Shown here is a 119-nucleotide RNA sequence from Aerococcus sp. Group 1, a member of the family "FMN riboswitch aptamer (RFN element)".
NCBI's taxonomy places the organism under Bacteria, Bacillati, Bacillota, Aerococcaceae, Aerococcus.
The family's consensus secondary structure is taken from published work.
The RFN element is a highly conserved domain that is found frequently in the 5'-untranslated regions of prokaryotic mRNAs that encode for flavin mononucleotide (FMN) biosynthesis and transport proteins.
RNA sequence: UGAAAUCUUCGGGGCAGGGUUAGAUUCCCGAUCGGCGGUGAUAGUCCGCGAAUCAGUGAGCUGAUAGAACUAGUGAAAUUCUAGUACCGACUGUAAAGUCAGAAUGGGAGAAGAUAGUA
Numbered sequence: 001u002g003a004a005a006u007c008u009u010c011g012g013g014g015c016a017g018g019g020u021u022a023g024a025u026u027c028c029c030g031a032u033c034g035g036c037g038g039u040g041a042u043a044g045u046c047c048g049c050g051a052a053u054c055a056g057u058g059a060g061c062u063g064a065u066a067g068a069a070c071u072a073g074u075g076a077a078a079u080u081c082u083a084g085u086a087c088c089g090a091c092u093g094u095a096a097a098g099u100c101a102g103a104a105u106g107g108g109a110g111a112a113g114a115u116a117g118u119a
Stems, first nucleotide, its partner, number of pairs: 005115006017029003031099002033089002035049004044087002052065003069085005091102003